[Rfam]
RNA sequence: GCCCCGCAUCAAGAGACAGGACUUCGGUCCUCGCCAACCUGCCGACUCGGGUAAGGUGGUCGCCGCUAAGAGCGGGAUGUGGCUGAUUCAGGCAAAAAAACGAGCUAAAAAUCAGCAACUUAGUAGUAACGAGC
Numbered sequence: 001g002c003c004c005c006g007c008a009u010c011a012a013g014a015g016a017c018a019g020g021a022c023u024u025c026g027g028u029c030c031u032c033g034c035c036a037a038c039c040u041g042c043c044g045a046c047u048c049g050g051g052u053a054a055g056g057u058g059g060u061c062g063c064c065g066c067u068a069a070g071a072g073c074g075g076g077a078u079g080u081g082g083c084u085g086a087u088u089c090a091g092g093c094a095a096a097a098a099a100a101c102g103a104g105c106u107a108a109a110a111a112u113c114a115g116c117a118a119c120u121u122a123g124u125a126g127u128a129a130c131g132a133g134c
Base pairs, nucleotide, nucleotide: 006080007079008078009077010076015032018031019030020029021028022027033060034059035058038056039055040054041052042051043050048126082116083115084114085113086112087111088110

Notes
This 134-nucleotide sequence belongs to the Rfam family "SAM-I/IV (S-adenosyl methionine) riboswitch aptamer".